[Rfam]
RNA: RNase MRP
Organism: Cephalotus follicularis
RNA sequence: CUAACACUGGAUGAUGUGGUUGGGCCGGAUUCAGCCCAGGAAAUUCCCCGGGCCUUUAAAUACAGAGAUGCAUUGGUUGGGAAACCAAGAACUUCGAUAUUGGAAAUCCAUCUCGCACUCUUGCGAGCGGCAGAGACACGUGUGGAGCCGUAUGGAUUUUCAACGAAGUGUUUGGCCGAUGUUAUAACAACAGUUAUUCACAUGUAAUCCAAUUCUGGAUUAAACUGAACGGGGCUUAUGUUCCAGUGUCUA
Numbered sequence: 001c002u003a004a005c006a007c008u009g010g011a012u013g014a015u016g017u018g019g020u021u022g023g024g025c026c027g028g029a030u031u032c033a034g035c036c037c038a039g040g041a042a043a044u045u046c047c048c049c050g051g052g053c054c055u056u057u058a059a060a061u062a063c064a065g066a067g068a069u070g071c072a073u074u075g076g077u078u079g080g081g082a083a084a085c086c087a088a089g090a091a092c093u094u095c096g097a098u099a100u101u102g103g104a105a106a107u108c109c110a111u112c113u114c115g116c117a118c119u120c121u122u123g124c125g126a127g128c129g130g131c132a133g134a135g136a137c138a139c140g141u142g143u144g145g146a147g148c149c150g151u152a153u154g155g156a157u158u159u160u161c162a163a164c165g166a167a168g169u170g171u172u173u174g175g176c177c178g179a180u181g182u183u184a185u186a187a188c189a190a191c192a193g194u195u196a197u198u199c200a201c202a203u204g205u206a207a208u209c210c211a212a213u214u215c216u217g218g219a220u221u222a223a224a225c226u227g228a229a230c231g232g233g234g235c236u237u238a239u240g241u242u243c244c245a246g247u248g249u250c251u252a
Base pairs, nucleotide, nucleotide: 002252003251004249005248006247007246008245009244010243011242014203015202016201017200018199019198022037023036024035025034027032042237043236046234047233048232049231061072063070064069073088074087075086076085077084078083108175109174110173115171116170117169118168119167125161126160127159128150129149130148131147138143205222206221207220208219209218210217